A member of the RNA family "Group II catalytic intron D1-D4-3" from Effusibacillus lacus, 173 nucleotides long. The pairing is the family consensus, mapped onto this sequence. Taxonomically the source falls in Effusibacillus (Bacteria, Bacilli, Caryophanales, Alicyclobacillaceae). Rfam's curators write: Group II introns are found in rRNA, tRNA and mRNA of organelles in fungi, plants and protists, and also in mRNA in bacteria.
[Rfam]
RNA sequence: UCCACCGCGAGGUGGAAUCUGAAGGAAGUCUGCGGCAAACCUCCGGCCUGAGGAACACGAACUUCAUACGAGGCUAGCGAUAGUUGGAUGAGUCUGCAUAACAAGACAAAGUCCUUGUUGCCGAAGGCUAUCGAGAGUAGAUGAAGCAGGUAGAUGGAGGGAAAGACAGCGCU
Numbered sequence: 001u002c003c004a005c006c007g008c009g010a011g012g013u014g015g016a017a018u019c020u021g022a023a024g025g026a027a028g029u030c031u032g033c034g035g036c037a038a039a040c041c042u043c044c045g046g047c048c049u050g051a052g053g054a055a056c057a058c059g060a061a062c063u064u065c066a067u068a069c070g071a072g073g074c075u076a077g078c079g080a081u082a083g084u085u086g087g088a089u090g091a092g093u094c095u096g097c098a099u100a101a102c103a104a105g106a107c108a109a110a111g112u113c114c115u116u117g118u119u120g121c122c123g124a125a126g127g128c129u130a131u132c133g134a135g136a137g138u139a140g141a142u143g144a145a146g147c148a149g150g151u152a153g154a155u156g157g158a159g160g161g162a163a164a165g166a167c168a169g170c171g172c173u
Stems, first nucleotide, its partner, number of pairs: 001016006028173001030171001036165001040160006046151005062146006073138003078133006086114004092107004